This 119-nucleotide RNA sequence from Lactobacillus psittaci belongs to the Rfam family "Ribosomal protein L20 leader". The family's RNA type in Rfam is cis-regulatory leader.
RNA sequence: GAGAACAAGAAGAAGCUCCCGCUUCUCGCCUAAGUUAAAGAUAAAACCUCUAGGCUAAUCGAUAAUUUCUGUUGAUUAAAGGCGGGUUGUUUUAUCCAUACCCGCUUUUUUCUUGUCCU
Numbered sequence: 001g002a003g004a005a006c007a008a009g010a011a012g013a014a015g016c017u018c019c020c021g022c023u024u025c026u027c028g029c030c031u032a033a034g035u036u037a038a039a040g041a042u043a044a045a046a047c048c049u050c051u052a053g054g055c056u057a058a059u060c061g062a063u064a065a066u067u068u069c070u071g072u073u074g075a076u077u078a079a080a081g082g083c084g085g086g087u088u089g090u091u092u093u094a095u096c097c098a099u100a101c102c103c104g105c106u107u108u109u110u111u112c113u114u115g116u117c118c119u
Stems, first nucleotide, its partner, number of pairs: 011026006028055003038049001040047001081106007088098002
Dot-bracket structure: ..........((((((....)))))).(((.......(.(......).)...))).........................(((((((((.......)).))))))).............